[Rfam]
RNA sequence: GUCCCCAUCGUCUAGCCUGGCCCAGGACACUAGCCUUUCACGCUAGCGACGGGGGUUCAAAUCCCCCUGGGGACG
Number, nucleotide and partner (000 for none) at each position: 001g074002u073003c072004c071005c070006c069007a068008u000009c000010g028011u027012c026013u025014a000015g000016c000017c000018u000019g000020g000021c000022c000023c000024a000025g013026g012027a011028c010029a000030c046031u045032a044033g043034c042035c000036u000037u000038u000039c000040a000041c000042g034043c033044u032045a031046g030047c000048g000049a000050c000051g067052g066053g065054g064055g063056u000057u000058c000059a000060a000061a000062u000063c055064c054065c053066c052067c051068u007069g006070g005071g004072g003073a002074c001075g000